t44 RNA: an 87-nucleotide RNA sequence from Halopseudomonas yangmingensis. About the family: This family consists of a number of bacterial RNA genes of between 135 and 170 bases in length. The t44 gene has been identified in several species of enteric bacteria but homologs have also been identified in Pseudomonas and Coxiella species. The t44 gene is found between the map and rpsB genes in all species in the full alignment apart from Shigella flexneri. The function of this RNA is unknown.
[Rfam]
RNA sequence: GGUGAGCAACACUGAAACCGCACACGUAUCGACACGUUAUUCUGGGUGCCCCUCGGGGUUGGAUAACGGGAUGCGUGGAGGCUCAAC
Numbered sequence: 001g002g003u004g005a006g007c008a009a010c011a012c013u014g015a016a017a018c019c020g021c022a023c024a025c026g027u028a029u030c031g032a033c034a035c036g037u038u039a040u041u042c043u044g045g046g047u048g049c050c051c052c053u054c055g056g057g058g059u060u061g062g063a064u065a066a067c068g069g070g071a072u073g074c075g076u077g078g079a080g081g082c083u084c085a086a087c
Base pairs, nucleotide, nucleotide: 023077024076025075026074027073028072029071030070035068036067037066038065039064040063041062042061048059049058050057051056